RNA sequence: AAUUCAAUGGUAUGGUGAAAAGGGAGAUUCAUGUAUUUCUUUCUACCAUACUAUGUAUUAGUGUUAUUGUAGUACAUAAAGUUGUACAG
Numbered sequence: 001a002a003u004u005c006a007a008u009g010g011u012a013u014g015g016u017g018a019a020a021a022g023g024g025a026g027a028u029u030c031a032u033g034u035a036u037u038u039c040u041u042u043c044u045a046c047c048a049u050a051c052u053a054u055g056u057a058u059u060a061g062u063g064u065u066a067u068u069g070u071a072g073u074a075c076a077u078a079a080a081g082u083u084g085u086a087c088a089g
Stems, first nucleotide, its partner, number of pairs: 007054011019042007